[Rfam]
Source information:
A member of the RNA family "Small nucleolar RNA U3" from Pristionchus pacificus, 186 nucleotides long. NCBI's taxonomy places the organism under Eukaryota, Ecdysozoa, Nematoda, Rhabditina, Pristionchus. The literature on the family includes a 1997 paper in Nucleic Acids Res by Zwieb, "The uRNA database". Rfam describes the family as follows. Small nucleolar RNAs (snoRNAs) are involved in the processing and modification of rRNA in the nucleolus. There are two main classes of snoRNAs: the box C/D class, and the box H/ACA class. U3 snoRNA is a member of the box C/D class. Indeed, the box C/D element is a subset of the six short sequence elements found in all U3 snoRNAs, namely boxes A, A', B, C, C', and D. The U3 snoRNA secondary structure is characterised by a small 5' domain (with boxes A and A'), and a larger 3' domain (with boxes B, C, C', and D), the two domains being linked by a single-stranded hinge. Boxes B and C form the B/C motif, which appears to be exclusive to U3 snoRNAs, and boxes C' and D form the C'/D motif. The latter is functionally similar to the C/D motifs found in other snoRNAs. The 5' domain and the hinge region act as a pre-rRNA-binding domain. The 3' domain has conserved protein-binding sites. Both the box B/C and box C'/D motifs are sufficient for nuclear retention of U3 snoRNA. The box C'/D motif is also necessary for nucleolar localisation, stability and hyper-methylation of U3 snoRNA. Both box B/C and C'/D motifs are involved in specific protein interactions and are necessary for the rRNA processing functions of U3 snoRNA. The match comes from Rfam's covariance-model search (88 bits).

RNA sequence: GAAAUCAUACUUCACAGGAUCAUUUCUGUAGUAUGUAUUUCACAUGAUCCCUCACUCUGCUUUGAACAGGCAACCGCGGUGAUUGGGAAAAGAGCGAAGCGCGAGCGGGAAAAUGCCUUCGGGCUUGAGGACCGCGGACGCUGGAAGCUCACUUUUGGUGGCCUGCGCCUCGCUCAUCUGAGCGGU
Numbered sequence: 001g002a003a004a005u006c007a008u009a010c011u012u013c014a015c016a017g018g019a020u021c022a023u024u025u026c027u028g029u030a031g032u033a034u035g036u037a038u039u040u041c042a043c044a045u046g047a048u049c050c051c052u053c054a055c056u057c058u059g060c061u062u063u064g065a066a067c068a069g070g071c072a073a074c075c076g077c078g079g080u081g082a083u084u085g086g087g088a089a090a091a092g093a094g095c096g097a098a099g100c101g102c103g104a105g106c107g108g109g110a111a112a113a114u115g116c117c118u119u120c121g122g123g124c125u126u127g128a129g130g131a132c133c134g135c136g137g138a139c140g141c142u143g144g145a146a147g148c149u150c151a152c153u154u155u156u157g158g159u160g161g162c163c164u165g166c167g168c169c170u171c172g173c174u175c176a177u178c179u180g181a182g183c184g185g186u
Stems, first nucleotide, its partner, number of pairs: 001041005006035006015028005046062002050059001073186005092175006099168004105135003115124003139160008